[Rfam]
RNA sequence: GGUCUCUUACUGCAAUCAAAAACAAAUCAAUUACUCAAAUGAAUUAAACCUAGGGAUCUG
Number, nucleotide and partner (000 for none) at each position: 001g058002g057003u056004c054005u053006c000007u000008u000009a000010c000011u000012g000013c000014a000015a000016u000017c000018a000019a000020a000021a000022a000023c000024a000025a000026a000027u000028c000029a000030a000031u000032u000033a000034c000035u000036c000037a000038a000039a000040u000041g000042a000043a000044u000045u000046a000047a000048a000049c000050c000051u000052a000053g005054g004055g000056a003057u002058c001059u000060g000
RNA: Class I RNA from Dictyostelium